[Rfam]
Rfam assigns this 63-nucleotide RNA from Myotis davidii to the family "mir-9242 microRNA precursor family".

RNA sequence: GGCCUACCUUUUUGGGGUGAUCGAUCAUGGAGUCCAUGAUCGAUCACCCCAAAGAGGGAGGCC
Numbered sequence: 001g002g003c004c005u006a007c008c009u010u011u012u013u014g015g016g017g018u019g020a021u022c023g024a025u026c027a028u029g030g031a032g033u034c035c036a037u038g039a040u041c042g043a044u045c046a047c048c049c050c051a052a053a054g055a056g057g058g059a060g061g062c063c
Stems, first nucleotide, its partner, number of pairs: 001063005007057024
Rfam 15.1 lists 940 matches to the family in 18 species.
Lineage of the source: Eukaryota > Gnathostomata > Tetrapoda > Eutheria > Myotis.
Pairs were carried over by alignment from the consensus structure, which was predicted with RNAalifold.